[Rfam]
RNA sequence: AGCCUGUGAUGAGCCUUUCUUUAUUUCUGACAUCUCCAAUGAAAGUGUUGCAUUUAGCAAUACUUGAUUAAUAUAUUUGUGGCUGAGGCUC
Number, nucleotide and partner (000 for none) at each position: 001a090002g089003c088004c087005u000006g000007u000008g000009a000010u000011g000012a000013g000014c000015c000016u000017u000018u000019c000020u000021u000022u000023a000024u000025u000026u000027c000028u000029g000030a000031c000032a000033u000034c000035u000036c000037c000038a000039a000040u000041g000042a000043a000044a000045g063046u000047g000048u060049u059050g058051c057052a000053u000054u000055u000056a000057g051058c050059a049060a048061u000062a000063c045064u000065u000066g000067a000068u000069u000070a000071a000072u000073a000074u000075a000076u000077u000078u000079g000080u000081g000082g000083c000084u000085g000086a000087g004088g003089c002090u001091c000
The family of this 91-nucleotide sequence from Chiloscyllium punctatum is "Small nucleolar RNA SNORD60".
It scores 53 bits against the family's covariance model.
On this family, see Galardi et al., Mol Cell Biol 2002: "Purified box C/D snoRNPs are able to reproduce site-specific 2'-O-methylation of target RNA in vitro".
The organism belongs to Chiloscyllium, within Eukaryota.
The family is grouped with related families in Rfam's "SNORD60 clan".
The family's RNA type in Rfam is C/D-box small nucleolar RNA.